[Rfam]
RNA sequence: AUUGCAAGUUUGAGGCCAUAGCAGAAACGCUCAUGGCUGGCCUGUUAGAUUCCAAUGGAUCUGCAAAUUCUGCU
Numbered sequence: 001a002u003u004g005c006a007a008g009u010u011u012g013a014g015g016c017c018a019u020a021g022c023a024g025a026a027a028c029g030c031u032c033a034u035g036g037c038u039g040g041c042c043u044g045u046u047a048g049a050u051u052c053c054a055a056u057g058g059a060u061c062u063g064c065a066a067a068u069u070c071u072g073c074u
Base pairs, nucleotide, nucleotide: 014042015041016040017039020074021073022072023071024070025069026068027038029037046063047062048061049060050059051058052057

A member of the RNA family "Mammalian CPEB3 ribozyme" from Alligator mississippiensis, 74 nucleotides long. Gene Ontology term of the family: RNA nuclease activity. NCBI's taxonomy places the organism under Eukaryota, Vertebrata, Dipnotetrapodomorpha, Archosauria, Alligator. A search with the family's covariance model found it, with a score of 42 bits.